U5 spliceosomal RNA: a 119-nucleotide sequence. Rfam 15.1 lists 28,527 matches to the family in 2,489 species. U5 RNA is a component of both types of known spliceosome. Pairs were carried over by alignment from the consensus structure, which is taken from published work. Rfam's curators put it in the seed alignment. Rfam classes the family as a spliceosomal small nuclear RNA. For this family Rfam cites "The uRNA database" (Zwieb, Nucleic Acids Res, 1997).
RNA sequence: AGCCGUGUGAUGAUGACAUAGCGAACUAUUCUUUCGCCUUUUACUAAAGAAUACCGUGUCAACGUCACUUUUAACGGCAUACGUUAGUUUUUGGAAGAGCCCUCUUAAUUGAGGGCUCU
Numbered sequence: 001a002g003c004c005g006u007g008u009g010a011u012g013a014u015g016a017c018a019u020a021g022c023g024a025a026c027u028a029u030u031c032u033u034u035c036g037c038c039u040u041u042u043a044c045u046a047a048a049g050a051a052u053a054c055c056g057u058g059u060c061a062a063c064g065u066c067a068c069u070u071u072u073a074a075c076g077g078c079a080u081a082c083g084u085u086a087g088u089u090u091u092u093g094g095a096a097g098a099g100c101c102c103u104c105u106u107a108a109u110u111g112a113g114g115g116c117u118c119u
Stems, first nucleotide, its partner, number of pairs: 003077004008067005014061005027053008095119001097118006